Overview
The record is a 147-nucleotide RNA sequence from Parasedimentitalea huanghaiensis, which matches "FMN riboswitch aptamer (RFN element)" in Rfam. The organism belongs to Parasedimentitalea, within Bacteria. It scores 116 bits against the family's covariance model. From the family's description: The RFN element is a highly conserved domain that is found frequently in the 5'-untranslated regions of prokaryotic mRNAs that encode for flavin mononucleotide (FMN) biosynthesis and transport proteins. This element is a metabolite-dependent riboswitch that directly binds FMN in the absence of proteins. In Bacillus subtilis, the riboswitch most likely controls gene expression by causing premature transcription termination within the 5' untranslated region of the ribDEAHT operon and precluding access to the ribosome-binding site of ypaA mRNA.The FMN riboswitch structure, reported in present an FMN-bound six-stem junction, adopts a butterfly-like scaffold, stapled together by opposingly directed but nearly identically folded peripheral domains.
[Rfam]
RNA sequence: GCUUGUUCUCAGGGCGGGGCGAAAUUCCCCACCGGCGGUGAGCAGGUUCAUCCUGUAAGCCCGCGAGCGGCCCCGUCGUUAGGGGUGUCAGCAGAUCUGGUGAGAUUCCAGAGCCGACGGUCAUAGUCCGGAUGGAAGAGAACGUGC
Numbered sequence: 001g002c003u004u005g006u007u008c009u010c011a012g013g014g015c016g017g018g019g020c021g022a023a024a025u026u027c028c029c030c031a032c033c034g035g036c037g038g039u040g041a042g043c044a045g046g047u048u049c050a051u052c053c054u055g056u057a058a059g060c061c062c063g064c065g066a067g068c069g070g071c072c073c074c075g076u077c078g079u080u081a082g083g084g085g086u087g088u089c090a091g092c093a094g095a096u097c098u099g100g101u102g103a104g105a106u107u108c109c110a111g112a113g114c115c116g117a118c119g120g121u122c123a124u125a126g127u128c129c130g131g132a133u134g135g136a137a138g139a140g141a142a143c144g145u146g147c
Base pairs, nucleotide, nucleotide: 004144005143006142007141008140009139010138017029018028019027031127032126033116034115035064036063037062038061059114060113067092068091096112097111098110099109100108118130119129120128